[Rfam]
RNA: c-di-GMP-I riboswitch aptamer
RNA sequence: CUCUCGAAAAGGCAAACCCGGUUUACCGGGCGCGCAAAGCCACGGGUUUAAUCGGAUUAGACCGCCGGGCUACCGAA
Numbered sequence: 001c002u003c004u005c006g007a008a009a010a011g012g013c014a015a016a017c018c019c020g021g022u023u024u025a026c027c028g029g030g031c032g033c034g035c036a037a038a039g040c041c042a043c044g045g046g047u048u049u050a051a052u053c054g055g056a057u058u059a060g061a062c063c064g065c066c067g068g069g070c071u072a073c074c075g076a077a
Stems, first nucleotide, its partner, number of pairs: 012035002017030005038071004043067003046062005